[Rfam]
RNA sequence: UUUUAGCCCCGAUAGUAGCGACAUCCUUUUUGAUGGCUGAGGCUCUCGAAGCCAUCAAAAAGAUAUAGCGAAUAGCGGGAAAUAGC
Number, nucleotide and partner (000 for none) at each position: 001u000002u000003u000004u000005a000006g000007c000008c000009c078010c077011g076012a000013u074014a073015g000016u000017a000018g069019c068020g000021a000022c000023a064024u063025c062026c000027u000028u000029u059030u058031u057032g056033a055034u054035g053036g052037c051038u050039g000040a000041g000042g000043c000044u000045c000046u000047c000048g000049a000050a038051g037052c036053c035054a034055u033056c032057a031058a030059a029060a000061a000062g025063a024064u023065a000066u000067a000068g019069c018070g000071a000072a000073u014074a013075g000076c011077g010078g009079g000080a000081a000082a000083u000084a000085g000086c000